RNA sequence: CUGAAGGGCGCGUCCGGGUCAAUUGCGGCUUGCAACACCCGAUCUCCCUCAACGUUCCUCCGAAAAUGGAGGUCGACGAGGGGGAGCGCGUGACCGUCAG
Numbered sequence: 001c002u003g004a005a006g007g008g009c010g011c012g013u014c015c016g017g018g019u020c021a022a023u024u025g026c027g028g029c030u031u032g033c034a035a036c037a038c039c040c041g042a043u044c045u046c047c048c049u050c051a052a053c054g055u056u057c058c059u060c061c062g063a064a065a066a067u068g069g070a071g072g073u074c075g076a077c078g079a080g081g082g083g084g085a086g087c088g089c090g091u092g093a094c095c096g097u098c099a100g
Stems, first nucleotide, its partner, number of pairs: 001100004008091006015041004023035005043085005053078004

Background: A member of the RNA family "L4-Archaeoglobi ribosomal protein leades" from Natronorubrum bangense, 100 nucleotides long. The source organism's lineage runs through Archaea, Methanobacteriati, Halobacteria, Natrialbaceae and Natronorubrum bangense. The sequence is in the family's curated seed alignment. On this family, see Eckert and Weinberg, BMC Microbiol 2020: "Discovery of 20 novel ribosomal leader candidates in bacteria and archaea".